Rfam assigns this 110-nucleotide sequence from Nocardioides sp. Root1257 to the family "Glycine riboswitch aptamer". The match comes from Rfam's covariance-model search (62 bits). Gene Ontology term of the family: glycine biosynthetic process. The pairing is the family consensus, mapped onto this sequence.
RNA sequence: CACUCCUGCACGGGAGAGUCCCCGGAUCUCGUGGGUCAUCGCGAGGGGCGGGGCGCCGAAGGGGCAAUUCCUCCCCGGAACCUCUCAGGCCACCGGACCGUGCGGGUCAG
Numbered sequence: 001c002a003c004u005c006c007u008g009c010a011c012g013g014g015a016g017a018g019u020c021c022c023c024g025g026a027u028c029u030c031g032u033g034g035g036u037c038a039u040c041g042c043g044a045g046g047g048g049c050g051g052g053g054c055g056c057c058g059a060a061g062g063g064g065c066a067a068u069u070c071c072u073c074c075c076c077g078g079a080a081c082c083u084c085u086c087a088g089g090c091c092a093c094c095g096g097a098c099c100g101u102g103c104g105g106g107u108c109a110g
Stems, first nucleotide, its partner, number of pairs: 006105008020053004055090003058086002062084003068078002